[Rfam]
RNA sequence: GAUUUUUCCCUACUCCUACGCCCGGCGCGCCAGCUGGAUCCGGCAGCGUCGUCACUAGCCUAAGCCAUAUCAGUCUCGAUAUAGCAACCAUCAAAGAUCGCAUUUGACAGUUAUGGCAAAGCGACACACCCUUCGCGCGUCCUGAGACUUGACGGUCGGUGACGAGGGAAAACUCGUAUCGAUUGAACCAGAGUUUCGGGGCCGAUUGGGAGGAUACCGGAGAUCGAUUGACGGCAGCGGCGCGUUUGGCGCUCCUGCACGAUUGCGCGGCCCACGAAACCCAAGGGUACGCGUCCAUCAACCAGGGAGAGUUAA
Dot-bracket structure: ...............(((.....(............................)..)......))...........(.......(((((..(((((.......)))))..)))...)).....)............((.(((....))).)).((((((....(((........)))...)))))).......(((....))).....(((.....................(((................((....))....))).....)))......(((..((((........)))..)..)))........
Rfam assigns this 315-nucleotide RNA sequence from Mesorhizobium sp. LSHC420B00 to the family "Mesorhizobail RNA 7".
It scores 236 bits against the family's covariance model.
The family's RNA type in Rfam is small RNA.
A reference for the family is Fuli et al. (2017), "A Genome-Wide Prediction and Identification of Intergenic Small RNAs by Comparative Analysis in Mesorhizobium huakuii 7653R", Front Microbiol.